[Rfam]
RNA sequence: GUGAGCGGACCGCCGAAUCCUGCCGCCGCUCACAGAAACGAAACGGACGGCAGGAGCGGGGGACCCAAUCUCUACGGCGCAUCGUUCUUGCGCCUCGGGGUGAAGCCGUGUGUGUGACACGGCCGGGAUGGAUCGUCCCGAACCCGACAGCUCACCUCGUAGGCGUGGAGGAUCACCCAU
Numbered sequence: 001g002u003g004a005g006c007g008g009a010c011c012g013c014c015g016a017a018u019c020c021u022g023c024c025g026c027c028g029c030u031c032a033c034a035g036a037a038a039c040g041a042a043a044c045g046g047a048c049g050g051c052a053g054g055a056g057c058g059g060g061g062g063a064c065c066c067a068a069u070c071u072c073u074a075c076g077g078c079g080c081a082u083c084g085u086u087c088u089u090g091c092g093c094c095u096c097g098g099g100g101u102g103a104a105g106c107c108g109u110g111u112g113u114g115u116g117a118c119a120c121g122g123c124c125g126g127g128a129u130g131g132a133u134c135g136u137c138c139c140g141a142a143c144c145c146g147a148c149a150g151c152u153c154a155c156c157u158c159g160u161a162g163g164c165g166u167g168g169a170g171g172a173u174c175a176c177c178c179a180u
Base pairs, nucleotide, nucleotide: 011165012164013163014162018055019054020053021052022051023050024049025048056160057159058158059157060156061155066097098145099144100143106122107121108120109119125139126138127137128136